Rfam assigns this 74-nucleotide RNA from Mycolicibacterium austroafricanum to the family "hya RNA".
The family's RNA type in Rfam is cis-regulatory element.
RNA sequence: AGCGCCACGCAAGUGGGCCGAGGGUCGACUCCAUUGGCGCAGGGCUCCCCAGCCCGGAGCUCGGAAAGCUGUGA
Numbered sequence: 001a002g003c004g005c006c007a008c009g010c011a012a013g014u015g016g017g018c019c020g021a022g023g024g025u026c027g028a029c030u031c032c033a034u035u036g037g038c039g040c041a042g043g044g045c046u047c048c049c050c051a052g053c054c055c056g057g058a059g060c061u062c063g064g065a066a067a068g069c070u071g072u073g074a
Base pairs, nucleotide, nucleotide: 003039004038005037006036007035042062043061044060045059046058047057